[Rfam]
RNA sequence: CCCAAAAUUGCCACUUGUCAUUUUCUAAUUGAUUCUUAUAAAAUUUUAACACACUAAGAACCAAUUAGAAAAUGACAAGUGGCAAUUUGGGU
Numbered sequence: 001c002c003c004a005a006a007a008u009u010g011c012c013a014c015u016u017g018u019c020a021u022u023u024u025c026u027a028a029u030u031g032a033u034u035c036u037u038a039u040a041a042a043a044u045u046u047u048a049a050c051a052c053a054c055u056a057a058g059a060a061c062c063a064a065u066u067a068g069a070a071a072a073u074g075a076c077a078a079g080u081g082g083c084a085a086u087u088u089g090g091g092u
Stems, first nucleotide, its partner, number of pairs: 002091002005088027033060006
Shown here is a 92-nucleotide sequence from Prunus yedoensis, a member of the family "MIR6288 microRNA precursor family". It scores 77 bits against the family's covariance model. The family has 3 seed sequences and 293 matches in Rfam 15.1. The source organism's lineage runs through Eukaryota, Streptophyta, Magnoliopsida, Rosaceae and Prunus yedoensis.